[Rfam]
RNA sequence: CUUGCGCUUCGUUCGGUGAGGCUCUUACGUGAACACAGGCCACUGAUCUGACGGCAUCGAGAGAUGUUCAAGAUCAGGACAGGUUCCCUCGGCUUAAGGGGGUGCCCCAAGUGGCUGCCAUUUGGCUACGUCACGCAAUGCCGAAGCUCUGACAUGGAAGCGCAUG
Numbered sequence: 001c002u003u004g005c006g007c008u009u010c011g012u013u014c015g016g017u018g019a020g021g022c023u024c025u026u027a028c029g030u031g032a033a034c035a036c037a038g039g040c041c042a043c044u045g046a047u048c049u050g051a052c053g054g055c056a057u058c059g060a061g062a063g064a065u066g067u068u069c070a071a072g073a074u075c076a077g078g079a080c081a082g083g084u085u086c087c088c089u090c091g092g093c094u095u096a097a098g099g100g101g102g103u104g105c106c107c108c109a110a111g112u113g114g115c116u117g118c119c120a121u122u123u124g125g126c127u128a129c130g131u132c133a134c135g136c137a138a139u140g141c142c143g144a145a146g147c148u149c150u151g152a153c154a155u156g157g158a159a160g161c162g163c164a165u166g
Base pairs, nucleotide, nucleotide: 005162006161007160008159009158010157011153012152013097015148016147017146020142021141022140025138026137028135029134030133031132032131039115040114041113042112043111045075046074047073048072049071055066056065057064058063082106083105084104088100089099090098117126118125119124
Dot-bracket structure: ....(((((((([.(((..(((..((.(((((......(((((.(((((.....((((....))))....)))))......(((...(((......])))...)))....))))).(((....)))....))))).)).)))...)))...))...))))))....
The family of this 166-nucleotide sequence from Leucobacter sp. 7(1) is "M-box riboswitch aptamer (ykoK leader)". Gene Ontology terms of the family: regulation of gene expression and response to magnesium ion. The pairing is the family consensus, mapped onto this sequence. Taxonomically the source falls in Leucobacter (Bacteria, Bacillati, Actinomycetota, Microbacteriaceae). A reference for the family is Ramesh et al. (2011), "Insights into metalloregulation by M-box riboswitch RNAs via structural analysis of manganese-bound complexes", J Mol Biol.